[Rfam]
RNA sequence: CUUCGCUGGUGGCGCACUUCCCUUUAGCGGGUGGCGAAAUCAUGCGUCGCUGUCAUCAGACAGAGCAAGAUCCCAAAUAGCCCGCUGCGUUAGCGGGUUUUUUUAU
Numbered sequence: 001c002u003u004c005g006c007u008g009g010u011g012g013c014g015c016a017c018u019u020c021c022c023u024u025u026a027g028c029g030g031g032u033g034g035c036g037a038a039a040u041c042a043u044g045c046g047u048c049g050c051u052g053u054c055a056u057c058a059g060a061c062a063g064a065g066c067a068a069g070a071u072c073c074c075a076a077a078u079a080g081c082c083c084g085c086u087g088c089g090u091u092a093g094c095g096g097g098u099u100u101u102u103u104u105a106u
Stems, first nucleotide, its partner, number of pairs: 009043004015036001017034002020031003079099007
This 106-nucleotide sequence from Sodalis-like symbiont of Philaenus spumarius belongs to the Rfam family "Tryptophan operon leader". Gene Ontology terms of the family: transcriptional attenuation by ribosome and tryptophan biosynthetic process. At least 6 amino acid operons are known to be regulated by attenuation. In each a leader sequence of 150-200 bp is found upstream of the first gene in the operon. This leader sequence can assume two different secondary structures known as the terminator and the anti-terminator structure. The family's consensus secondary structure is taken from published work. The source organism's lineage runs through Bacteria, Pseudomonadati, Pseudomonadota, Bruguierivoracaceae and Sodalis. The literature on the family includes a 1982 paper in Annu Rev Genet by Kolter and Yanofsky, "Attenuation in amino acid biosynthetic operons". It is annotated as a cis-regulatory leader.